This 107-nucleotide RNA sequence from Desulfosporosinus youngiae belongs to the Rfam family "Glycine riboswitch aptamer". About the family: This family represents the bacterial glycine riboswitch.

RNA sequence: AUGACACUAGCGGGAGAGAUCUGAUUCGUCAGGCGCCGAAGGAGAAAUUCCUUGAAAUCGCUCUUUCAAGGAGGGAAGCUCUCAGGCAAAUGUACUGCUAGAAGACG
Numbered sequence: 001a002u003g004a005c006a007c008u009a010g011c012g013g014g015a016g017a018g019a020u021c022u023g024a025u026u027c028g029u030c031a032g033g034c035g036c037c038g039a040a041g042g043a044g045a046a047a048u049u050c051c052u053u054g055a056a057a058u059c060g061c062u063c064u065u066u067c068a069a070g071g072a073g074g075g076a077a078g079c080u081c082u083c084a085g086g087c088a089a090a091u092g093u094a095c096u097g098c099u100a101g102a103a104g105a106c107g
Stems, first nucleotide, its partner, number of pairs: 007101007020033004035087003038083002042081003048074002
A reference for the family is Babina et al. (2017), "In Vivo Behavior of the Tandem Glycine Riboswitch in Bacillus subtilis", MBio.